[Rfam]
RNA sequence: GAGUGAGAUGAUGAAUAAUGAUAAUUACUGUUUUGAGUGCCUAGAUGAUGGCACAAACAUUGUAUUAGCUCUAUCUGAUCACUC
Numbered sequence: 001g002a003g004u005g006a007g008a009u010g011a012u013g014a015a016u017a018a019u020g021a022u023a024a025u026u027a028c029u030g031u032u033u034u035g036a037g038u039g040c041c042u043a044g045a046u047g048a049u050g051g052c053a054c055a056a057a058c059a060u061u062g063u064a065u066u067a068g069c070u071c072u073a074u075c076u077g078a079u080c081a082c083u084c
Stems, first nucleotide, its partner, number of pairs: 002083004035054001038053004
RNA: Small nucleolar RNA Z102/R77